Nucleotides: 087
Base pairs, nucleotide, nucleotide: 004084005083006082012074013073014072015071016070017069020067022065023064024063025062026061027060029058030057031056032055033054037050038049039048040047041046
Number, partner (000 for none) and nucleotide at each position: 001000a002000g003000a004084g005083g006082c007000c008000c009000u010000c011000c012074g013073c014072g015071g016070c017069c018000g019000g020067g021000a022065u023064g024063g025062a026061a027060u028000u029058c030057u031056u032055g033054c034000c035000u036000c037050a038049u039048c040047g041046c042000c043000a044000c045000a046041g047040u048039g049038a050037u051000g052000a053000a054033g055032c056031a057030a058029g059000c060027a061026u062025u063024c064023c065022a066000c067020c068000a069017g070016g071015c072014c073013g074012c075000u076000c077000a078000c079000a080000c081000u082006g083005c084004c085000u086000g087000c